[Rfam]
Rfam assigns this 121-nucleotide RNA from Bacillus sp. FJAT-49711 to the family "ylbH leader". Lineage of the source: Bacteria > Bacillati > Bacilli > Caryophanales > Bacillus. About the family: This family is a putative regulatory RNA structure that is found upstream of the ylbH gene in B. subtilis and related low GC Gram-positive bacteria. It scores 100 bits against the family's covariance model.
RNA sequence: AUUAAAAAAACCCUGCAUCUCUAUGCAGGGCCCUUCAAAUUCCGAUAAAAUACGGAUAGAAGGCAAAGGGAGAGGAGAAACCGGAGGAAGAACUUAAGGGGAACGUAAGUCUUCUCCGCGG
Numbered sequence: 001a002u003u004a005a006a007a008a009a010a011c012c013c014u015g016c017a018u019c020u021c022u023a024u025g026c027a028g029g030g031c032c033c034u035u036c037a038a039a040u041u042c043c044g045a046u047a048a049a050a051u052a053c054g055g056a057u058a059g060a061a062g063g064c065a066a067a068g069g070g071a072g073a074g075g076a077g078a079a080a081c082c083g084g085a086g087g088a089a090g091a092a093c094u095u096a097a098g099g100g101g102a103a104c105g106u107a108a109g110u111c112u113u114c115u116c117c118g119c120g121g
Base pairs, nucleotide, nucleotide: 011030012029013028014027015026016025017024018023031070032069033068034067035066041056042055043054044053082118083117084116085115087114088113089112090111092110093109094108095107096106